RNA: Glm Y RNA activator of glmS mRNA
Organism: Thorsellia anophelis
RNA sequence: AGUAGCUCAUUCACACUCGUAUCAUUCUGAUUAUCAGAAUUUACACUUAGAAUGAAGCCCACAAUAUGGUGCCUAUCGUCAAACAUCGGAUAUCAACCUUAAUAGGCUUAUCCACUUAAAGACGUAACGUUGAGUGAGGCACCUCCAA
Numbered sequence: 001a002g003u004a005g006c007u008c009a010u011u012c013a014c015a016c017u018c019g020u021a022u023c024a025u026u027c028u029g030a031u032u033a034u035c036a037g038a039a040u041u042u043a044c045a046c047u048u049a050g051a052a053u054g055a056a057g058c059c060c061a062c063a064a065u066a067u068g069g070u071g072c073c074u075a076u077c078g079u080c081a082a083a084c085a086u087c088g089g090a091u092a093u094c095a096a097c098c099u100u101a102a103u104a105g106g107c108u109u110a111u112c113c114a115c116u117u118a119a120a121g122a123c124g125u126a127a128c129g130u131u132g133a134g135u136g137a138g139g140c141a142c143c144u145c146c147a148a
Stems, first nucleotide, its partner, number of pairs: 005058002007055006019044003024040006068143007077124004088113005127135002